[Rfam]
RNA: ASpks TB sRNA
Organism: Saccharopolyspora elongata
RNA sequence: UUUCAGCGAUCCCAGCCACAAGGGACGUUCGGCGGUGUGAUGCUGGCCGUAGGUGGCCAGCAGUGCCCGCGCUUC
Numbered sequence: 001u002u003u004c005a006g007c008g009a010u011c012c013c014a015g016c017c018a019c020a021a022g023g024g025a026c027g028u029u030c031g032g033c034g035g036u037g038u039g040a041u042g043c044u045g046g047c048c049g050u051a052g053g054u055g056g057c058c059a060g061c062a063g064u065g066c067c068c069g070c071g072c073u074u075c
Base pairs, nucleotide, nucleotide: 016024017023032070033069038065039064043060044059045058047056048055049054
Dot-bracket structure: ...............((.....)).......((....((...(((.(((....))).)))...))...)).....